[Rfam]
Nucleotides: 078
Base pairs, nucleotide, nucleotide: 015071016070017069018068019067020066021065022053023052024051025050026049027048030043031042032041
Number, partner (000 for none) and nucleotide at each position: 001000a002000c003000c004000g005000u006000c007000u008000a009000c010000u011000a012000u013000u014000a015071g016070u017069u018068c019067c020066u021065u022053g023052c024051c025050u026049c027048a028000g029000a030043g031042g032041u033000c034000c035000g036000g037000u038000u039000g040000a041032a042031c043030c044000u045000a046000u047000a048027u049026g050025a051024g052023g053022c054000u055000g056000c057000u058000a059000a060000c061000c062000c063000g064000u065021a066020a067019g068018g069017a070016g071015c072000a073000a074000c075000a076000a077000u078000g
Shown here is a 78-nucleotide sequence from Alginatibacterium sediminis, a member of the family "RpsF leader". Rfam links the family to the GO terms protein binding and negative regulation of translation. The literature on the family includes a 2014 paper in RNA by Fu et al., "Bacterial RNA motif in the 5' UTR of rpsF interacts with an S6:S18 complex". Taxonomically the source falls in Alginatibacterium (Bacteria, Pseudomonadati, Gammaproteobacteria, Alteromonadaceae). A search with the family's covariance model found it, with a score of 43 bits.